[Rfam]
RNA sequence: GAGAGGAGGUACCCAUGCAUCGUAGAUGCAUAUAAAAUGGUACCGACGAUAUGCCGUUACCCAUAAUGGGAGGGGGCAAUACCUAUG
Numbered sequence: 001g002a003g004a005g006g007a008g009g010u011a012c013c014c015a016u017g018c019a020u021c022g023u024a025g026a027u028g029c030a031u032a033u034a035a036a037a038u039g040g041u042a043c044c045g046a047c048g049a050u051a052u053g054c055c056g057u058u059a060c061c062c063a064u065a066a067u068g069g070g071a072g073g074g075g076g077c078a079a080u081a082c083c084u085a086u087g
Stems, first nucleotide, its partner, number of pairs: 008044006015031006053077003057073002061069002

The family of this 87-nucleotide sequence is "GA-cis RNA". The sequence is in the family's curated seed alignment. It is annotated as a small RNA.